[Rfam]
RNA sequence: CUGUGAGGACGACCUCACCCAUCAGGGCGCAUUUUUCUGGGACGACCCGG
Numbered sequence: 001c002u003g004u005g006a007g008g009a010c011g012a013c014c015u016c017a018c019c020c021a022u023c024a025g026g027g028c029g030c031a032u033u034u035u036u037c038u039g040g041g042a043c044g045a046c047c048c049g050g
Base pairs, nucleotide, nucleotide: 003018004017005016006015007014008013037050038049039048040047041046

A member of the RNA family "Guanidine-II riboswitch aptamer (mini-ykkC)" from Pikeienuella piscinae, 50 nucleotides long. Taxonomically the source falls in Pikeienuella (Bacteria, Pseudomonadati, Pseudomonadota, Rhodobacterales). Rfam links the family to the GO term regulation of gene expression. Pairs were carried over by alignment from the consensus structure, which is taken from published work. A search with the family's covariance model found it, with a score of 34 bits.